[Rfam]
The family of this 181-nucleotide RNA sequence is "glycine-GGAnGA riboswitch aptamer".
About the family: glycine-GGAnGA riboswitch is a variant of glycine riboswitch that have in common a U69A change. This riboswitch is associate with genes that encode either saccharopine dehydrogenase or amino acid transporters and other genes with not predicted function.
For this family Rfam cites "Bioinformatic analysis of riboswitch structures uncovers variant classes with altered ligand specificity" (Weinberg et al., Proc Natl Acad Sci U S A, 2017).
RNA sequence: CCGGAUGAAAGCAGUCUGAAACACUUCUUAGAAGAGAAGGACCGACGCGGAAAGCUGGAGCAAAGAGCGUUUGCUUCAAGGAAACUGACAGGUACAAAAAAGGUUGCUGGACGGAACUCUGGAAAGACUAUCUUUUGAUGGAGCCAAUGAGGCGAUAACCAACUGGCAAAAAGACAGAGGA
Number, nucleotide and partner (000 for none) at each position: 001c114002c113003g112004g000005a000006u000007g000008a000009a000010a108011g107012c106013a105014g104015u103016c102017u101018g000019a000020a000021a000022c040023a000024c039025u038026u037027c036028u035029u034030a000031g000032a000033a000034g029035a028036g027037a026038a025039g024040g022041a093042c092043c091044g000045a000046c000047g089048c087049g086050g085051a000052a000053a000054g000055c000056u078057g077058g076059a075060g074061c073062a072063a071064a070065g000066a000067g000068c000069g000070u064071u063072u062073g061074c060075u059076u058077c057078a056079a000080g000081g000082a000083a000084a000085c050086u049087g048088a000089c047090a000091g043092g042093u041094a000095c000096a000097a000098a000099a000100a000101a017102g016103g015104u014105u013106g012107c011108u010109g000110g000111a000112c003113g002114g001115a000116a000117c179118u178119c177120u176121g175122g000123a000124a000125a000126g000127a000128c141129u140130a139131u138132c000133u000134u000135u000136u000137g000138a131139u130140g129141g128142a000143g167144c166145c165146a000147a000148u000149g163150a000151g160152g159153c000154g000155a000156u000157a000158a000159c152160c151161a000162a000163c149164u000165g145166g144167c143168a000169a000170a000171a000172a000173g000174a000175c121176a120177g119178a118179g117180g000181a000